Background
The family of this 79-nucleotide sequence from Oryctolagus cuniculus is "Small nucleolar RNA SNORD115". The organism belongs to Oryctolagus, within Eukaryota. The match comes from Rfam's covariance-model search (79 bits). The family's RNA type in Rfam is C/D-box small nucleolar RNA.
RNA sequence: GGGUCGACGAUGAGACUUCAUGAUGUCUCGAGGAGAUGAUGGCUUAAAAAUCAUGCUCAAUAGGAUUACACUGAGACCC
Dot-bracket structure: ((((((..(...........................................................)..))..))))